[Rfam]
RNA sequence: GUUGGCACUGUCCGGGUUUCACGACGACCGAACACUUCAUUUAAAAAGGUUGUUCGUUGUCGUUGAAACCUGAACGUGGCCUUC
Number, nucleotide and partner (000 for none) at each position: 001g084002u000003u000004g081005g080006c079007a000008c000009u000010g000011u000012c000013c072014g071015g070016g069017u068018u067019u066020c065021a064022c000023g000024a000025c000026g000027a000028c000029c000030g055031a054032a053033c052034a051035c000036u000037u000038c000039a000040u000041u000042u000043a000044a000045a000046a000047a000048g000049g000050u000051u034052g033053u032054u031055c030056g000057u000058u000059g000060u000061c000062g000063u000064u021065g020066a019067a018068a017069c016070c015071u014072g013073a000074a000075c000076g000077u000078g000079g006080c005081c004082u000083u000084c001
The family of this 84-nucleotide RNA sequence from Stegodyphus mimosarum is "mir-981 microRNA precursor family". For this family Rfam cites "Identification of microRNAs expressed in two mosquito vectors, Aedes albopictus and Culex quinquefasciatus" (Skalsky et al., BMC Genomics, 2010). The match comes from Rfam's covariance-model search (56 bits).